[Rfam]
RNA sequence: ACACAGGGAAGGAGGUGGUCCGCGAAAUUGAUUGCGUUAUGGACAUGUGAGGUGGCUGCGCGCUAAGCAGCGCCAGGCUGGAAAGACCCGGCAUUAUCUGCUGGCGAAUUCCCCGCAGCCACCCGGCCCCCGAGCCCCCGGUCUGUCCAACCCGGAACUACGGCUCGGGGGCUGCCCAUU
Numbered sequence: 001a002c003a004c005a006g007g008g009a010a011g012g013a014g015g016u017g018g019u020c021c022g023c024g025a026a027a028u029u030g031a032u033u034g035c036g037u038u039a040u041g042g043a044c045a046u047g048u049g050a051g052g053u054g055g056c057u058g059c060g061c062g063c064u065a066a067g068c069a070g071c072g073c074c075a076g077g078c079u080g081g082a083a084a085g086a087c088c089c090g091g092c093a094u095u096a097u098c099u100g101c102u103g104g105c106g107a108a109u110u111c112c113c114c115g116c117a118g119c120c121a122c123c124c125g126g127c128c129c130c131c132g133a134g135c136c137c138c139c140g141g142u143c144u145g146u147c148c149a150a151c152c153c154g155g156a157a158c159u160a161c162g163g164c165u166c167g168g169g170g171g172c173u174g175c176c177c178a179u180u
Base pairs, nucleotide, nucleotide: 015059016058017057018056019055061106062105063104064103065102067101068100069099070098072092073091074090124174125173126172127171128170129169130168131167132166133165134164135163136162137155138154140152141151142150
Dot-bracket structure: ..............(((((...................................))))).(((((.((((.(((...............))).....))))))))).................(((((((((((((((.(((.......))).))......)))))))))))))......
The record is a 180-nucleotide sequence from Mycobacterium fragae, which matches "Actinobacteria sRNA Ms_IGR-5" in Rfam. Lineage of the source: Bacteria > Bacillati > Mycobacteriales > Mycobacteriaceae > Mycobacterium. For this family Rfam cites "Identification of small RNAs in Mycobacterium smegmatis using heterologous Hfq" (Li et al., RNA, 2013). A search with the family's covariance model found it, with a score of 157 bits.